[Rfam]
RNA sequence: AUACUUACCUGGAAGAGGUAAGUAUGAAGAUUAUGAAGGUGAUAGUCCCAGAGUGAGGCUCAUCCAUUGCACACAGGAUAUGCAGAUCUCUGUGAUUUCUCCAACUAGGGAAAACCUGACUGCGUAAUUUAUAGCAGUGGGGCACUGUGGCUUGCACUAGCCCCU
Dot-bracket structure: ...........(.((.((.....((.(............).))...)).((((.(..((..((((..........))))..))...))))).((.(((.((......)).)).)..)).)).)...............(((((...(((.....)))..))))).
RNA: U1 spliceosomal RNA